[Rfam]
RNA sequence: AUAUGCCUGGCUCCCUGUAUGCCAUUUGCGGAGCUCAUCAAGAUUUUGAUGACCCUCCUUGAAUGGCGUAUGAGGAGCCAAGCAUAU
Numbered sequence: 001a002u003a004u005g006c007c008u009g010g011c012u013c014c015c016u017g018u019a020u021g022c023c024a025u026u027u028g029c030g031g032a033g034c035u036c037a038u039c040a041a042g043a044u045u046u047u048g049a050u051g052a053c054c055c056u057c058c059u060u061g062a063a064u065g066g067c068g069u070a071u072g073a074g075g076a077g078c079c080a081a082g083c084a085u086a087u
Base pairs, nucleotide, nucleotide: 001087002086003085004084005083006082008080009079010078011077012076013075014074016072017071018070019069020068021067022066023065024064027061028060